Shown here is an 89-nucleotide RNA sequence from Rhododendron simsii, a member of the family "Small nucleolar RNA snR60/Z15/Z230/Z193/J17". It scores 47 bits against the family's covariance model. Pairs were carried over by alignment from the consensus structure. Clan: SNORD77 clan.

[Rfam]
RNA sequence: CAGCGUCACCUGAUGAUUUUAAGCAUACUUCAAAUGAUAAUAUUUAUGAUUAAUCAUUUGAAUCACUUUCGCCUUUUCUGAUGACUCUG
Numbered sequence: 001c002a003g004c005g006u007c008a009c010c011u012g013a014u015g016a017u018u019u020u021a022a023g024c025a026u027a028c029u030u031c032a033a034a035u036g037a038u039a040a041u042a043u044u045u046a047u048g049a050u051u052a053a054u055c056a057u058u059u060g061a062a063u064c065a066c067u068u069u070c071g072c073c074u075u076u077u078c079u080g081a082u083g084a085c086u087c088u089g
Stems, first nucleotide, its partner, number of pairs: 005085004
Notes:
The literature on the family includes a 1999 paper in Science by Lowe and Eddy, "A computational screen for methylation guide snoRNAs in yeast".